[Rfam]
RNA sequence: GCGGAGGGCCGGAUGGCCGCGGGGGGCAUCCCCCGAGGAAAGUCCGGACUCCCUGAAGCAACGGUGCCGGGUAACGCCCGGGCGGAGCAAUCCGACGGACAGCGCCACAGAAAAGAAACCGCCCCGUGCGCGGGGUAAGGGUGAAACGGUGGGGUAAGAGCCCACCGCGGGACUGGCAACAGGACCGGCACGGCAAGCCCCACCGGGAGCAAUGCCAAAUAGGGACCUCGCGUGCGCGUCACAGGGCCGCUUCAGCCCGAGGGGUCCGGGUUGGCAGCAAGAGCCCGCGGGCAAUCGCGGGCCGAGACGAAUGGUCAUCGAACCGGGGGCGACCCCGGGGAACAGGAUCCGGCUUACAGGCCCUCCGCGCAU
Numbered sequence: 001g002c003g004g005a006g007g008g009c010c011g012g013a014u015g016g017c018c019g020c021g022g023g024g025g026g027c028a029u030c031c032c033c034c035g036a037g038g039a040a041a042g043u044c045c046g047g048a049c050u051c052c053c054u055g056a057a058g059c060a061a062c063g064g065u066g067c068c069g070g071g072u073a074a075c076g077c078c079c080g081g082g083c084g085g086a087g088c089a090a091u092c093c094g095a096c097g098g099a100c101a102g103c104g105c106c107a108c109a110g111a112a113a114a115g116a117a118a119c120c121g122c123c124c125c126g127u128g129c130g131c132g133g134g135g136u137a138a139g140g141g142u143g144a145a146a147c148g149g150u151g152g153g154g155u156a157a158g159a160g161c162c163c164a165c166c167g168c169g170g171g172a173c174u175g176g177c178a179a180c181a182g183g184a185c186c187g188g189c190a191c192g193g194c195a196a197g198c199c200c201c202a203c204c205g206g207g208a209g210c211a212a213u214g215c216c217a218a219a220u221a222g223g224g225a226c227c228u229c230g231c232g233u234g235c236g237c238g239u240c241a242c243a244g245g246g247c248c249g250c251u252u253c254a255g256c257c258c259g260a261g262g263g264g265u266c267c268g269g270g271u272u273g274g275c276a277g278c279a280a281g282a283g284c285c286c287g288c289g290g291g292c293a294a295u296c297g298c299g300g301g302c303c304g305a306g307a308c309g310a311a312u313g314g315u316c317a318u319c320g321a322a323c324c325g326g327g328g329g330c331g332a333c334c335c336c337g338g339g340g341a342a343c344a345g346g347a348u349c350c351g352g353c354u355u356a357c358a359g360g361c362c363c364u365c366c367g368c369g370c371a372u
Stems, first nucleotide, its partner, number of pairs: 001368010011357001012319007020035006040355003044352005049209004058252001062205005067081005082096001083094004097200002102198002104194003119140002121136006148166006167189001168187003173182003213276004223267006244258004283302008